[Rfam]
RNA: DUF805b RNA
Organism: Flavobacterium rivulicola
RNA sequence: AAAGAGGAAACCGAAAAUCUUGAAAGAGAGUAGGUG
Numbered sequence: 001a002a003a004g005a006g007g008a009a010a011c012c013g014a015a016a017a018u019c020u021u022g023a024a025a026g027a028g029a030g031u032a033g034g035u036g
Base pairs, nucleotide, nucleotide: 002021003020004019005018010035011034012033